[Rfam]
Nucleotides: 069
Stems, first nucleotide, its partner, number of pairs: 001069005007064003011060004017056006029044004
Number, partner (000 for none) and nucleotide at each position: 001069g002068u003067a004066g005065a006000u007064a008063a009062u010000g011060a012059u013058g014057a015000c016000u017056a018055a019054c020053u021052g022051a023000a024000u025000u026000g027000a028000u029044g030043a031042c032041u033000u034000u035000g036000g037000g038000u039000g040000u041032g042031g043030u044029u045000u046000a047000g048000u049000g050000a051022u052021c053020a054019g055018u056017u057014u058013c059012a060011u061000g062009a063008u064007u065005u066004c067003u068002a069001u
The family of this 69-nucleotide sequence from Capra hircus is "mir-2335 microRNA precursor family".
NCBI's taxonomy places the organism under Eukaryota, Metazoa, Bilateria, Ruminantia, Capra.
The family's consensus secondary structure was predicted with RNAalifold.
The sequence is in the family's curated seed alignment.